[Rfam]
RNA sequence: CAUGAUUAGCUAUUUAUAGCUAGGAUUGUAUAGAGGGUAGCAGCAGUCGCCCCAACUCCGAUGAUUAUGUGAGAAUUUAAUUUUCAUGUAAUUGUAAGGUGAGAAACAACGAUUAUGUUGGAAACUUUAAUUUUAUUAAAAAAUUAAGGAACUGU
Numbered sequence: 001c002a003u004g005a006u007u008a009g010c011u012a013u014u015u016a017u018a019g020c021u022a023g024g025a026u027u028g029u030a031u032a033g034a035g036g037g038u039a040g041c042a043g044c045a046g047u048c049g050c051c052c053c054a055a056c057u058c059c060g061a062u063g064a065u066u067a068u069g070u071g072a073g074a075a076u077u078u079a080a081u082u083u084u085c086a087u088g089u090a091a092u093u094g095u096a097a098g099g100u101g102a103g104a105a106a107c108a109a110c111g112a113u114u115a116u117g118u119u120g121g122a123a124a125c126u127u128u129a130a131u132u133u134u135a136u137u138a139a140a141a142a143a144u145u146a147a148g149g150a151a152c153u154g155u
Stems, first nucleotide, its partner, number of pairs: 006023007035052004043155004056103003061095010073083004107120004125149009
Rfam assigns this 155-nucleotide RNA sequence to the family "IS605-orfB-II RNA". Rfam classes the family as a small RNA. Rfam's curators put it in the seed alignment.